[Rfam]
RNA sequence: GUGUCCAGUCAUGUGGUCUUUGUCUCAGUCCAUGGCAUUAGAUGCACUGGCAGGACACACAGAAAUAUCCGUCCAUUAAAGGGGACAUUUCCCAAGCAGGACUUGAUCCUAAAGGCAGGACGGAACAUC
Numbered sequence: 001g002u003g004u005c006c007a008g009u010c011a012u013g014u015g016g017u018c019u020u021u022g023u024c025u026c027a028g029u030c031c032a033u034g035g036c037a038u039u040a041g042a043u044g045c046a047c048u049g050g051c052a053g054g055a056c057a058c059a060c061a062g063a064a065a066u067a068u069c070c071g072u073c074c075a076u077u078a079a080a081g082g083g084g085a086c087a088u089u090u091c092c093c094a095a096g097c098a099g100g101a102c103u104u105g106a107u108c109c110u111a112a113a114g115g116c117a118g119g120a121c122g123g124a125a126c127a128u129c
Stems, first nucleotide, its partner, number of pairs: 002057005008051001010050001021046003025042002068124006076115002081110004086105002089101001091100002
The family of this 129-nucleotide RNA from Sinocyclocheilus anshuiensis is "Small Cajal body specific RNA 11". The family's RNA type in Rfam is small Cajal body RNA. Rfam's curators write: scaRNAs are a specific class of small nuclear RNAs which localise to the Cajal bodies and guide the modification of RNA polymerase II transcribed spliceosomal RNAs U1, U2, U4, U5 and U12. ACA57 belongs to the H/ACA box class of guide RNAs as it has the predicted hairpin-hinge-hairpin-tail structure, conserved H/ACA-box motifs and is found associated with GAR1. Pairs were carried over by alignment from the consensus structure, which was predicted with RNAalifold. It scores 38 bits against the family's covariance model. Its family is annotated with Cajal body, nucleolus and RNA processing in the Gene Ontology.